[Rfam]
RNA sequence: GGAAUUGCUUGACAACGAGAGAGAGCACGCUUGUCGGCAUUCAUGCAAGGGCAUGGCUGUUUACAAGCGUGCUUUCUCUUGUUGUCACUCGAUU
Numbered sequence: 001g002g003a004a005u006u007g008c009u010u011g012a013c014a015a016c017g018a019g020a021g022a023g024a025g026c027a028c029g030c031u032u033g034u035c036g037g038c039a040u041u042c043a044u045g046c047a048a049g050g051g052c053a054u055g056g057c058u059g060u061u062u063a064c065a066a067g068c069g070u071g072c073u074u075u076c077u078c079u080u081g082u083u084g085u086c087a088c089u090c091g092a093u094u
Stems, first nucleotide, its partner, number of pairs: 010087005016081002020077002023074001025072010
Record summary
The record is a 94-nucleotide sequence from Nelumbo nucifera, which matches "MIR535 microRNA precursor family" in Rfam. For this family Rfam cites "Conservation and divergence of microRNAs and their functions in Euphorbiaceous plants" (Zeng et al., Nucleic Acids Res, 2010).